This 101-nucleotide RNA from Alligator sinensis belongs to the Rfam family "Small nucleolar RNA SNORD16". Its family is annotated with RNA processing and nucleolus in the Gene Ontology. The literature on the family includes a 1993 paper in EMBO J by Fragapane et al., "A novel small nucleolar RNA (U16) is encoded inside a ribosomal protein intron and originates by processing of the pre-mRNA". The organism belongs to Alligator, within Eukaryota.
[Rfam]
RNA sequence: UGCCGUGAUGAUGUAAUUUGCGACGUAUCCAGUGCUCGGCGACAGUGGCCUGCUGUCGGCGCGCCGGCACUGCUGAGCUGAAGACCGUUUGAUUCUGAGCA
Numbered sequence: 001u002g003c004c005g006u007g008a009u010g011a012u013g014u015a016a017u018u019u020g021c022g023a024c025g026u027a028u029c030c031a032g033u034g035c036u037c038g039g040c041g042a043c044a045g046u047g048g049c050c051u052g053c054u055g056u057c058g059g060c061g062c063g064c065c066g067g068c069a070c071u072g073c074u075g076a077g078c079u080g081a082a083g084a085c086c087g088u089u090u091g092a093u094u095c096u097g098a099g100c101a
Stems, first nucleotide, its partner, number of pairs: 001101003021083001024080001030072005039064002041057005